[Rfam]
Source information:
Eukaryotic large subunit ribosomal RNA: a 489-nucleotide part of an RNA from Gossypium aridum.

RNA sequence: CUCCAAAGUUUCUGUUAGGAUAGUUGGAUCUCUUAGCGAUUUCUAUCAGGUAAAGCCAAUGAUUAGAGGCAUCGUGGGGGCAACACCCUCAACCUAUUCUCAAACUUUAAAUAGGUAGGACGGCGCGACUGCUUCACUGAGCUAUGCCACGAAAUCGAGAGCUCCAAGUGGGCCAUAUUUGGUAAGUAGAACUAGCAAUACUAGAUGAACCAAAAGCUGUGUUACGGUGCCUAAUUACGUGCUAACCUAGAACCCACAAAGGGUGUUAGUUGAUUAAGACAGCAGAAUGAUGGUCAUGGAAGUCAAAAUCUGCUAAGGAAUGUGUAACAAAUCACCUGUCGAAUCAACUACCCAGAAAAUAUAUGGAACUUAAUCGCACGACCUAUAACCAGCCGUCAGGGAAAGGGCCAGGCCUCGAUGAGUAAGAGUUUACGGUGGUCACCACAAAACCUGAGGCGCGAUCCUGGCGGAGCGACUAUCAGUGUAAAU
Numbered sequence: 001c002u003c004c005a006a007a008g009u010u011u012c013u014g015u016u017a018g019g020a021u022a023g024u025u026g027g028a029u030c031u032c033u034u035a036g037c038g039a040u041u042u043c044u045a046u047c048a049g050g051u052a053a054a055g056c057c058a059a060u061g062a063u064u065a066g067a068g069g070c071a072u073c074g075u076g077g078g079g080g081c082a083a084c085a086c087c088c089u090c091a092a093c094c095u096a097u098u099c100u101c102a103a104a105c106u107u108u109a110a111a112u113a114g115g116u117a118g119g120a121c122g123g124c125g126c127g128a129c130u131g132c133u134u135c136a137c138u139g140a141g142c143u144a145u146g147c148c149a150c151g152a153a154a155u156c157g158a159g160a161g162c163u164c165c166a167a168g169u170g171g172g173c174c175a176u177a178u179u180u181g182g183u184a185a186g187u188a189g190a191a192c193u194a195g196c197a198a199u200a201c202u203a204g205a206u207g208a209a210c211c212a213a214a215a216g217c218u219g220u221g222u223u224a225c226g227g228u229g230c231c232u233a234a235u236u237a238c239g240u241g242c243u244a245a246c247c248u249a250g251a252a253c254c255c256a257c258a259a260a261g262g263g264u265g266u267u268a269g270u271u272g273a274u275u276a277a278g279a280c281a282g283c284a285g286a287a288u289g290a291u292g293g294u295c296a297u298g299g300a301a302g303u304c305a306a307a308a309u310c311u312g313c314u315a316a317g318g319a320a321u322g323u324g325u326a327a328c329a330a331a332u333c334a335c336c337u338g339u340c341g342a343a344u345c346a347a348c349u350a351c352c353c354a355g356a357a358a359a360u361a362u363a364u365g366g367a368a369c370u371u372a373a374u375c376g377c378a379c380g381a382c383c384u385a386u387a388a389c390c391a392g393c394c395g396u397c398a399g400g401g402a403a404a405g406g407g408c409c410a411g412g413c414c415u416c417g418a419u420g421a422g423u424a425a426g427a428g429u430u431u432a433c434g435g436u437g438g439u440c441a442c443c444a445c446a447a448a449a450c451c452u453g454a455g456g457c458g459c460g461a462u463c464c465u466g467g468c469g470g471a472g473c474g475a476c477u478a479u480c481a482g483u484g485u486a487a488a489u
Base pairs, nucleotide, nucleotide: 001428002427003426009022011020012019013018025166026165027164028163030161031160041120042119043118044117045116046115047114053108054106055105060102061101062100065097067095068094069093072092074090076088077087122148123147124146125145127143129141130140172196173195175193178190179189180188181187216393217392218391219390222387226383227382228381235380240376241375262353263352265351267350268349269348270347271346272345273344274343282339283338284337285336288312289311294306313317318333323330394420395419396418397417399415400414401413431484434480435479436478437477438476439475440474442472450467455464456463
The match comes from Rfam's covariance-model search (2355 bits).